This 104-nucleotide sequence from Sodalis glossinidius belongs to the Rfam family "RprA RNA". The family's consensus secondary structure was predicted with PFOLD.

RNA sequence: GCGUGUUAUUAGCUCUAUGAUUUAGUAAUGAUUUUAAUGCUACCCGGCAUGACAGAAUUGCUGUGUGUAGUCUUUGCCCAUCUUUAAGAUGGGCUUUUUUUUAU
Numbered sequence: 001g002c003g004u005g006u007u008a009u010u011a012g013c014u015c016u017a018u019g020a021u022u023u024a025g026u027a028a029u030g031a032u033u034u035u036a037a038u039g040c041u042a043c044c045c046g047g048c049a050u051g052a053c054a055g056a057a058u059u060g061c062u063g064u065g066u067g068u069a070g071u072c073u074u075u076g077c078c079c080a081u082c083u084u085u086a087a088g089a090u091g092g093g094c095u096u097u098u099u100u101u102u103a104u
Stems, first nucleotide, its partner, number of pairs: 002019004031041001059067003076094007
NCBI's taxonomy places the organism under Bacteria, Pseudomonadati, Bruguierivoracaceae, Sodalis, Sodalis glossinidius. On this family, see Majdalani et al., Mol Microbiol 2002: "Regulation and mode of action of the second small RNA activator of RpoS translation, RprA". Its family is annotated with mRNA binding in the Gene Ontology. Rfam's curators put it in the seed alignment. Translational regulation of the stationary phase sigma factor RpoS is mediated by the formation of a double-stranded RNA stem-loop structure in the upstream region of the rpoS messenger RNA, occluding the translation initiation site.